Record summary:
A member of the RNA family "Small nucleolar RNA SNORD116" from Chrysochloris asiatica, 94 nucleotides long. The match comes from Rfam's covariance-model search (84 bits). For this family Rfam cites "Identification of brain-specific and imprinted small nucleolar RNA genes exhibiting an unusual genomic organization" (Cavaille et al., Proc Natl Acad Sci U S A, 2000).
RNA sequence: GGAUCGAUGAUGAUGUUUACAAAAAACACUCCUUGGAAAAGCUCAACAAAAUGAGUGAACAGUCACCACCGUCUGACUCUUAGAACUAAGGUCC
Numbered sequence: 001g002g003a004u005c006g007a008u009g010a011u012g013a014u015g016u017u018u019a020c021a022a023a024a025a026a027c028a029c030u031c032c033u034u035g036g037a038a039a040a041g042c043u044c045a046a047c048a049a050a051a052u053g054a055g056u057g058a059a060c061a062g063u064c065a066c067c068a069c070c071g072u073c074u075g076a077c078u079c080u081u082a083g084a085a086c087u088a089a090g091g092u093c094c
Stems, first nucleotide, its partner, number of pairs: 001094005027057005033049003